Source information
The family of this 60-nucleotide RNA sequence from Eptatretus burgeri is "Selenocysteine insertion sequence 1". Rfam describes the family as follows. The incorporation of selenocysteine into a protein sequence is directed by an in-frame UGA codon (usually a stop codon) within the coding region of the mRNA. Selenoprotein mRNAs contain a conserved secondary structure in the 3' UTR that is required for the distinction of UGA stop from UGA selenocysteine. The selenocysteine insertion sequence (SECIS) is around 60 nt in length and adopts a hairpin structure which is sufficiently well-defined and conserved to act as a computational screen for selenoprotein genes. Rfam links the family to the GO term selenocysteine incorporation. The family's RNA type in Rfam is cis-regulatory element. The base pairs follow the family's consensus structure, which is taken from published work.

RNA sequence: CUCAUUGGAUGACGGGAUUGGGGAAAAGCCUUCGGGACCCCCAAUCUUUGAUGAUAUGAG
Numbered sequence: 001c002u003c004a005u006u007g008g009a010u011g012a013c014g015g016g017a018u019u020g021g022g023g024a025a026a027a028g029c030c031u032u033c034g035g036g037a038c039c040c041c042c043a044a045u046c047u048u049u050g051a052u053g054a055u056a057u058g059a060g
Base pairs, nucleotide, nucleotide: 001060002059003058014048015047016046017045018044019043020042021041022040023039029036030035